A member of the RNA family "ZMP/ZTP riboswitch aptamer (pfl RNA motif)" from Gordonia amarae, 81 nucleotides long. The source organism's lineage runs through Bacteria, Actinomycetes, Mycobacteriales, Gordoniaceae and Gordonia amarae. The base pairs follow the family's consensus structure, which is taken from published work.

RNA sequence: CAUCGGCAGUGCGACUGGCGUAGCCGGAGUACCGGCAUGGAGCGUUUAUCGACGACGGCAUCGACCGCCUGGGUGCCGACG
Dot-bracket structure: ..((((.(((((..(.[[[[...((((....))))...)..)))))..)))).....(((((...]]]]..))))).....
Numbered sequence: 001c002a003u004c005g006g007c008a009g010u011g012c013g014a015c016u017g018g019c020g021u022a023g024c025c026g027g028a029g030u031a032c033c034g035g036c037a038u039g040g041a042g043c044g045u046u047u048a049u050c051g052a053c054g055a056c057g058g059c060a061u062c063g064a065c066c067g068c069c070u071g072g073g074u075g076c077c078g079a080c081g
Stems, first nucleotide, its partner, number of pairs: 003052004008046005015039001017069004024035004058076005